[Rfam]
RNA sequence: UAGGAAAAGAAGAAGCACCCGCUUCUCACCUGAUUGACGCAGUUUGGCAGUUGGCAGGUUUUACGAGGACUUUUAGUUAUUUUAACUUUGUUCGUAAAGUGUGGGUGUGUACAUCCACACUUUUUUUAUUUG
Numbered sequence: 001u002a003g004g005a006a007a008a009g010a011a012g013a014a015g016c017a018c019c020c021g022c023u024u025c026u027c028a029c030c031u032g033a034u035u036g037a038c039g040c041a042g043u044u045u046g047g048c049a050g051u052u053g054g055c056a057g058g059u060u061u062u063a064c065g066a067g068g069a070c071u072u073u074u075a076g077u078u079a080u081u082u083u084a085a086c087u088u089u090g091u092u093c094g095u096a097a098a099g100u101g102u103g104g105g106u107g108u109g110u111a112c113a114u115c116c117a118c119a120c121u122u123u124u125u126u127u128a129u130u131u132g
Base pairs, nucleotide, nucleotide: 011026012025013024014023015022016021028059029058030057036052037051038050039048040047100119101118102117103116104115105114106113107112